[Rfam]
RNA: Small nucleolar RNA Z102/R77
RNA sequence: GAAUGAGGUGAUGAGCGAUUAUUUCCCUAUUGGUUUGAUUCGCCGGAAUGAUGGUGUAUUCACGUAUUCGUACUGUCUGAUCGUUC
Numbered sequence: 001g002a003a004u005g006a007g008g009u010g011a012u013g014a015g016c017g018a019u020u021a022u023u024u025c026c027c028u029a030u031u032g033g034u035u036u037g038a039u040u041c042g043c044c045g046g047a048a049u050g051a052u053g054g055u056g057u058a059u060u061c062a063c064g065u066a067u068u069c070g071u072a073c074u075g076u077c078u079g080a081u082c083g084u085u086c
Base pairs, nucleotide, nucleotide: 002085003084004083005082041056042055043054044053